[Rfam]
A member of the RNA family "Bacterial small subunit ribosomal RNA" from Enhydrobacter aerosaccus, 511 nucleotides of a longer RNA.
RNA sequence: AAACUUGAGAGUUUGAUCCUGGCUCAGAACGAACGCUGGCGGCAGGCUUAACACAUGCAAGUCGAACGCGUGUAGCAAUACACGAGUGGCGCACGGGUGAGUAACGCGUGGAUAUCUGCCUUUUGGUUCGGAAUAACCCCGGGAAACUGGGGCUAAUACCGGAUGGUUCCUACGGGAUAAAGAUUUAUCGCCAAAAGAUGAGUCCGCGUCCGAUUAGCUAGUUGGUGGGGUAACGGCCUACCAAGGCGACGAUCGGUAGCUGGUCUGAGAGGACGAUCAGCCACACUGGGACUGAGACACGGCCCAGACUCCUACGGGAGGCAGCAGUGGGGAAUAUUGGACAAUGGGGGCAACCCUGAUCCAGCCAUGCCGCGUGAGUGAUGAAGGCCUUCGGGUUGUAAAGCUCUUUUGGCGGGGACGAUGAUGACGGUACCCGCAGAAUAAGCCCCGGCUAACUUCGUGCCAGCAGCCGCGGUAAGACGAAGGGGGCUAGCGUUGUUCGGAAUUACUG
Numbered sequence: 001a002a003a004c005u006u007g008a009g010a011g012u013u014u015g016a017u018c019c020u021g022g023c024u025c026a027g028a029a030c031g032a033a034c035g036c037u038g039g040c041g042g043c044a045g046g047c048u049u050a051a052c053a054c055a056u057g058c059a060a061g062u063c064g065a066a067c068g069c070g071u072g073u074a075g076c077a078a079u080a081c082a083c084g085a086g087u088g089g090c091g092c093a094c095g096g097g098u099g100a101g102u103a104a105c106g107c108g109u110g111g112a113u114a115u116c117u118g119c120c121u122u123u124u125g126g127u128u129c130g131g132a133a134u135a136a137c138c139c140c141g142g143g144a145a146a147c148u149g150g151g152g153c154u155a156a157u158a159c160c161g162g163a164u165g166g167u168u169c170c171u172a173c174g175g176g177a178u179a180a181a182g183a184u185u186u187a188u189c190g191c192c193a194a195a196a197g198a199u200g201a202g203u204c205c206g207c208g209u210c211c212g213a214u215u216a217g218c219u220a221g222u223u224g225g226u227g228g229g230g231u232a233a234c235g236g237c238c239u240a241c242c243a244a245g246g247c248g249a250c251g252a253u254c255g256g257u258a259g260c261u262g263g264u265c266u267g268a269g270a271g272g273a274c275g276a277u278c279a280g281c282c283a284c285a286c287u288g289g290g291a292c293u294g295a296g297a298c299a300c301g302g303c304c305c306a307g308a309c310u311c312c313u314a315c316g317g318g319a320g321g322c323a324g325c326a327g328u329g330g331g332g333a334a335u336a337u338u339g340g341a342c343a344a345u346g347g348g349g350g351c352a353a354c355c356c357u358g359a360u361c362c363a364g365c366c367a368u369g370c371c372g373c374g375u376g377a378g379u380g381a382u383g384a385a386g387g388c389c390u391u392c393g394g395g396u397u398g399u400a401a402a403g404c405u406c407u408u409u410u411g412g413c414g415g416g417g418a419c420g421a422u423g424a425u426g427a428c429g430g431u432a433c434c435c436g437c438a439g440a441a442u443a444a445g446c447c448c449c450g451g452c453u454a455a456c457u458u459c460g461u462g463c464c465a466g467c468a469g470c471c472g473c474g475g476u477a478a479g480a481c482g483a484a485g486g487g488g489g490c491u492a493g494c495g496u497u498g499u500u501c502g503g504a505a506u507u508a509c510u511g
Stems, first nucleotide, its partner, number of pairs: 009025005027501004032497006039373006045366002047331001052329003056326003061090003066087002069084006097284003106209008115201002120197007128162004137152006168177003182189002210256003217247003222244008259281004263274004286307005309320004337363001339362003345358005376406004386397004412437005420428001445490005456485005466473002
The organism belongs to Enhydrobacter, within Bacteria. It scores 1585 bits against the family's covariance model. The family is grouped with related families in Rfam's "SSU clan".